[Rfam]
RNA sequence: AACGUGCUCCGGGGUCGGUGAGAAUCCGAACCGGCGGUGACAGUCCGCGAGCCCGCCAGAUCGAAUGAUCGAACGGGUCGACCCGGUGGAAUUCCGGGACCGACGGUGAUGCGGCGCCUCUCUGCGGAGAGCGCCGCGAGUCCGGAUGGGAGGCAGCACGGG
Numbered sequence: 001a002a003c004g005u006g007c008u009c010c011g012g013g014g015u016c017g018g019u020g021a022g023a024a025u026c027c028g029a030a031c032c033g034g035c036g037g038u039g040a041c042a043g044u045c046c047g048c049g050a051g052c053c054c055g056c057c058a059g060a061u062c063g064a065a066u067g068a069u070c071g072a073a074c075g076g077g078u079c080g081a082c083c084c085g086g087u088g089g090a091a092u093u094c095c096g097g098g099a100c101c102g103a104c105g106g107u108g109a110u111g112c113g114g115c116g117c118c119u120c121u122c123u124g125c126g127g128a129g130a131g132c133g134c135c136g137c138g139a140g141u142c143c144g145g146a147u148g149g150g151a152g153g154c155a156g157c158a159c160g161g162g
Stems, first nucleotide, its partner, number of pairs: 003160006009153002016028003032102002034048004043100002051078005082098005104144003
A member of the RNA family "FMN riboswitch aptamer (RFN element)" from Microbacterium lacticum, 162 nucleotides long.
The match comes from Rfam's covariance-model search (73 bits).
The organism belongs to Microbacterium, within Bacteria.